Shown here is a 71-nucleotide RNA sequence from Anolis carolinensis, a member of the family "mir-30 microRNA precursor family".
[Rfam]
RNA sequence: UCUGUUGUUGUAAACAUCCCCGACUGGAAGCUGUAAAUUUCAGCUUUCAGUCAGAUGUUUGCUGCCACCGG
Numbered sequence: 001u002c003u004g005u006u007g008u009u010g011u012a013a014a015c016a017u018c019c020c021c022g023a024c025u026g027g028a029a030g031c032u033g034u035a036a037a038u039u040u041c042a043g044c045u046u047u048c049a050g051u052c053a054g055a056u057g058u059u060u061g062c063u064g065c066c067a068c069c070g071g
Base pairs, nucleotide, nucleotide: 002070004068005067008064010062011061012060013059014058015057016056017055018054023051024050025049026048027047028046029045030044031043032042
The source organism's lineage runs through Eukaryota, Deuterostomia, Euteleostomi, Sauria and Anolis. A reference for the family is Lagos-Quintana et al. (2001), "Identification of novel genes coding for small expressed RNAs", Science. This family consists of the mammalian microRNA (miRNA) precursor mir-30a. Animal miRNAs are transcribed as ~70nt precursors and subsequently processed by the Dicer enzyme to give a ~22nt product. In this case the mature sequence comes from both the 3' (miR-30) and 5' (mir-97-6) arms of the precursor.